The family of this 54-nucleotide RNA from Salvelinus namaycush is "UnaL2 LINE 3' element". It scores 58 bits against the family's covariance model. The base pairs follow the family's consensus structure, which is taken from published work. Rfam describes the family as follows. The eel long interspersed element (LINE) UnaL2 and its partner short interspersed element (SINE) share a conserved 3' tail containing a stem-loop that is critical for their retrotransposition. Presumably, the first step of retrotransposition is the recognition of their 3' tails by UnaL2-encoded reverse transcriptase. The solution structure of a 17-nucleotide RNA derived from the 3' tail of UnaL2 was determined by NMR. Rfam classes the family as a cis-regulatory element. The organism belongs to Salvelinus, within Eukaryota. For this family Rfam cites "Solution structure of an RNA stem-loop derived from the 3' conserved region of eel LINE UnaL2" (Baba et al., RNA, 2004). Rfam links the family to the GO term transposition, RNA-mediated.
[Rfam]
RNA sequence: AAAAAUCUCUCCUGUUAGUCGCUCUGGAUAAGAGCGUCUGCUAAAUGACUAAAG
Numbered sequence: 001a002a003a004a005a006u007c008u009c010u011c012c013u014g015u016u017a018g019u020c021g022c023u024c025u026g027g028a029u030a031a032g033a034g035c036g037u038c039u040g041c042u043a044a045a046u047g048a049c050u051a052a053a054g
Base pairs, nucleotide, nucleotide: 013043014041015040020036021035022034023033024032025031